[Rfam]
RNA sequence: AGCGCGAUCGGAUCGACCGCGCGGGUCACCGUCAGGUAGUCGCGCAGGACGAUGCCGUGCCGGUUCUC
Numbered sequence: 001a002g003c004g005c006g007a008u009c010g011g012a013u014c015g016a017c018c019g020c021g022c023g024g025g026u027c028a029c030c031g032u033c034a035g036g037u038a039g040u041c042g043c044g045c046a047g048g049a050c051g052a053u054g055c056c057g058u059g060c061c062g063g064u065u066c067u068c
Stems, first nucleotide, its partner, number of pairs: 005062002008059001011030001013028001015027004035056004040052003
RNA: ASdes TB sRNA